[Rfam]
RNA sequence: ACCUGCAUUCAAAAGUGAUCAUGGGCUGCCUGUGCUCUGGUCGUCGACAAUGCAGGGAGAAGAAUUGCUGAAAGCCGUUUCCCGUGUUUGGAGGGUUCACGCCUGUCCCUUUCAAAUGCUGGCGCUUUCACACA
Numbered sequence: 001a002c003c004u005g006c007a008u009u010c011a012a013a014a015g016u017g018a019u020c021a022u023g024g025g026c027u028g029c030c031u032g033u034g035c036u037c038u039g040g041u042c043g044u045c046g047a048c049a050a051u052g053c054a055g056g057g058a059g060a061a062g063a064a065u066u067g068c069u070g071a072a073a074g075c076c077g078u079u080u081c082c083c084g085u086g087u088u089u090g091g092a093g094g095g096u097u098c099a100c101g102c103c104u105g106u107c108c109c110u111u112u113c114a115a116a117u118g119c120u121g122g123c124g125c126u127u128u129c130a131c132a133c134a
Stems, first nucleotide, its partner, number of pairs: 002056008015044007023037004067131001069130007086117005091111005
Shown here is a 134-nucleotide RNA sequence from Tupaia belangeri, a member of the family "Small nucleolar RNA SNORA71". It scores 136 bits against the family's covariance model. Gene Ontology terms of the family: RNA processing and nucleolus. The members of this family belong to the H/ACA class of snoRNAs which bind a number of proteins (including dyskerin, Gar1p and Nop10p) to form snoRNP complexes. This class of snoRNAs are thought to guide the sites of modification of uridines to pseudouridines by forming direct base pairing interactions with substrate RNAs. Taxonomically the source falls in Tupaia belangeri (Eukaryota, Deuterostomia, Euarchontoglires, Tupaiidae).